A member of the RNA family "mir-181 microRNA precursor family" from Sarcophilus harrisii, 84 nucleotides long. Pairs were carried over by alignment from the consensus structure, which was predicted with PFOLD. Lineage of the source: Eukaryota > Bilateria > Tetrapoda > Theria > Sarcophilus. Its family is annotated with miRNA-mediated post-transcriptional gene silencing and RISC complex in the Gene Ontology.

[Rfam]
RNA sequence: AGGUCACAAUCAACAUUCAUUGCUGUCGGUGGGUUGUAAACUGUGAGGAAAAACUCACCGAUGGAUGAAUGUCACUGUGGCUGG
Numbered sequence: 001a002g003g004u005c006a007c008a009a010u011c012a013a014c015a016u017u018c019a020u021u022g023c024u025g026u027c028g029g030u031g032g033g034u035u036g037u038a039a040a041c042u043g044u045g046a047g048g049a050a051a052a053a054c055u056c057a058c059c060g061a062u063g064g065a066u067g068a069a070u071g072u073c074a075c076u077g078u079g080g081c082u083g084g
Stems, first nucleotide, its partner, number of pairs: 003082001004080005014071008025062007033054003